[Rfam]
RNA: Betaproteobacteria toxic small RNA
Organism: Pseudorhodoferax sp. Leaf267
RNA sequence: UGUCUCCUCCACCCUCCGAAAAGGUGGAUUAGCCUCCGGGUCGCAAGACCCGGGGGCUUUUUUC
Numbered sequence: 001u002g003u004c005u006c007c008u009c010c011a012c013c014c015u016c017c018g019a020a021a022a023g024g025u026g027g028a029u030u031a032g033c034c035u036c037c038g039g040g041u042c043g044c045a046a047g048a049c050c051c052g053g054g055g056g057c058u059u060u061u062u063u064c
Stems, first nucleotide, its partner, number of pairs: 008028006032057003036053005